A member of the RNA family "Small nucleolar RNA U6-47" from Caenorhabditis briggsae, 141 nucleotides long. The literature on the family includes a 2006 paper in Nucleic Acids Res by Zemann et al., "Evolution of small nucleolar RNAs in nematodes". Taxonomically the source falls in Caenorhabditis (Eukaryota, Eumetazoa, Bilateria, Protostomia).
[Rfam]
RNA sequence: GAGCAAUGACGAUUUUCGAUUCACAAAACGGUUUAGCAUCAGGACACAAAGUGCUCGUCACUUUGUAACAGUUUCCAGUCGUCGUUUGGCAGAAACCGUUUUGAUGAUGUGACCGAGCGACUAAUCUUCUCUCUGAGCUCA
Numbered sequence: 001g002a003g004c005a006a007u008g009a010c011g012a013u014u015u016u017c018g019a020u021u022c023a024c025a026a027a028a029c030g031g032u033u034u035a036g037c038a039u040c041a042g043g044a045c046a047c048a049a050a051g052u053g054c055u056c057g058u059c060a061c062u063u064u065g066u067a068a069c070a071g072u073u074u075c076c077a078g079u080c081g082u083c084g085u086u087u088g089g090c091a092g093a094a095a096c097c098g099u100u101u102u103g104a105u106g107a108u109g110u111g112a113c114c115g116a117g118c119g120a121c122u123a124a125u126c127u128u129c130u131c132u133c134u135g136a137g138c139u140c141a
Stems, first nucleotide, its partner, number of pairs: 001140004
Dot-bracket structure: ((((....................................................................................................................................)))).